The family of this 69-nucleotide RNA from Pan troglodytes is "mir-1245 microRNA precursor family". The source organism's lineage runs through Eukaryota, Metazoa, Tetrapoda, Amniota and Pan. Gene Ontology terms of the family: miRNA-mediated post-transcriptional gene silencing and RISC complex. The base pairs follow the family's consensus structure, which was predicted with RNAalifold.
RNA sequence: UUUAUGUAUAAGCCUUUAGAUCAUCUGAUGUUGAAUACUCUUUAAGUGAUCUAAAGGCCUACAUAUAAA
Numbered sequence: 001u002u003u004a005u006g007u008a009u010a011a012g013c014c015u016u017u018a019g020a021u022c023a024u025c026u027g028a029u030g031u032u033g034a035a036u037a038c039u040c041u042u043u044a045a046g047u048g049a050u051c052u053a054a055a056g057g058c059c060u061a062c063a064u065a066u067a068a069a
Base pairs, nucleotide, nucleotide: 002068003067004066005065006064007063009061010060012058013057014056015055016054017053018052019051020050021049022048023047024046026044027043028042030040